[Rfam]
RNA sequence: UAUCCAUAUAAUAACUUAUUAUGUGGUUACUUUGAGUUACAAUAGUUACUAUGCUAGUUUACGAUACUACAGUAACUCCUUACUAAGUGAUUUACUAUAACAUUAUGGUAAAUAUCACCGUGAGUUGUAGUAACACGAGUGUCAUAAAUACAUAUUCAUGUUAUCGUAAAUUGGUACAAACAAUAUCGUAAAUUAAAAUGGCUAUAGAAUAAAUUAUUCUGUGACCA
Numbered sequence: 001u002a003u004c005c006a007u008a009u010a011a012u013a014a015c016u017u018a019u020u021a022u023g024u025g026g027u028u029a030c031u032u033u034g035a036g037u038u039a040c041a042a043u044a045g046u047u048a049c050u051a052u053g054c055u056a057g058u059u060u061a062c063g064a065u066a067c068u069a070c071a072g073u074a075a076c077u078c079c080u081u082a083c084u085a086a087g088u089g090a091u092u093u094a095c096u097a098u099a100a101c102a103u104u105a106u107g108g109u110a111a112a113u114a115u116c117a118c119c120g121u122g123a124g125u126u127g128u129a130g131u132a133a134c135a136c137g138a139g140u141g142u143c144a145u146a147a148a149u150a151c152a153u154a155u156u157c158a159u160g161u162u163a164u165c166g167u168a169a170a171u172u173g174g175u176a177c178a179a180a181c182a183a184u185a186u187c188g189u190a191a192a193u194u195a196a197a198a199u200g201g202c203u204a205u206a207g208a209a210u211a212a213a214u215u216a217u218u219c220u221g222u223g224a225c226c227a
Stems, first nucleotide, its partner, number of pairs: 001227001005223004010218005016212005022206008031197003037191004042186003046183002050178001052176011066164001069161003072157001074155001080147003087142003091138002093132009103122001108116001
RNA: MIR6217 microRNA precursor family